[Rfam]
RNA sequence: UGAGUUGACUAGACAACCGCUGCUUUAUCGUUGUCCUUUAGAGGAGAACGAUAGAGGGGAGGAAAGUCCGGGCUCCACAGGGCAGGGUGCCAGAUAACGUCUGGGAGGCGCGAGCCUACGACAAGUGCAGCAGAGAGUAAACCGCCGAUGGCCUGUUUACAGGAUCAGGUAAGGGUGAAAGGGUGCGGUAAGAGCGCACCGCACAGCUGGUAACAGUUUGUGGCAAGGUAAACUCCACCCGGAGCAAGACCAAAUAGGGGUUCUUAUGGUGCGGCCCGCAUUGAACCCGGGUAGGUUGCUGGAGCCAGCGCGCAAGUUCUGGCCUAGAUGAAUGGUUGUCCACGACAGAACCCGGCUUAACGGUCAACUCACCUC
Numbered sequence: 001u002g003a004g005u006u007g008a009c010u011a012g013a014c015a016a017c018c019g020c021u022g023c024u025u026u027a028u029c030g031u032u033g034u035c036c037u038u039u040a041g042a043g044g045a046g047a048a049c050g051a052u053a054g055a056g057g058g059g060a061g062g063a064a065a066g067u068c069c070g071g072g073c074u075c076c077a078c079a080g081g082g083c084a085g086g087g088u089g090c091c092a093g094a095u096a097a098c099g100u101c102u103g104g105g106a107g108g109c110g111c112g113a114g115c116c117u118a119c120g121a122c123a124a125g126u127g128c129a130g131c132a133g134a135g136a137g138u139a140a141a142c143c144g145c146c147g148a149u150g151g152c153c154u155g156u157u158u159a160c161a162g163g164a165u166c167a168g169g170u171a172a173g174g175g176u177g178a179a180a181g182g183g184u185g186c187g188g189u190a191a192g193a194g195c196g197c198a199c200c201g202c203a204c205a206g207c208u209g210g211u212a213a214c215a216g217u218u219u220g221u222g223g224c225a226a227g228g229u230a231a232a233c234u235c236c237a238c239c240c241g242g243a244g245c246a247a248g249a250c251c252a253a254a255u256a257g258g259g260g261u262u263c264u265u266a267u268g269g270u271g272c273g274g275c276c277c278g279c280a281u282u283g284a285a286c287c288c289g290g291g292u293a294g295g296u297u298g299c300u301g302g303a304g305c306c307a308g309c310g311c312g313c314a315a316g317u318u319c320u321g322g323c324c325u326a327g328a329u330g331a332a333u334g335g336u337u338g339u340c341c342a343c344g345a346c347a348g349a350a351c352c353c354g355g356c357u358u359a360a361c362g363g364u365c366a367a368c369u370c371a372c373c374u375c
Base pairs, nucleotide, nucleotide: 001371002370003369004368005367006366007365008364009363010362012340013339014338015337016336017335018334020059021058023056024055025054026053027052028051029050030049031048032047064358065357066356068355069354070353071352072351073244074243075242076241080277081276082275083274085240086239087238088237089236090104091103092102093101094100105119106117107116108115109114120235121234125233126232127229128228142174143173144170145169146168151166152163153162154161155160182200183199184198185197186196187195201224202222203221204220205219206218207216208215209214248297249296250295251294258288259287260286261285262284263283268282269281270280271279272278304323305322306321307320308319310317311316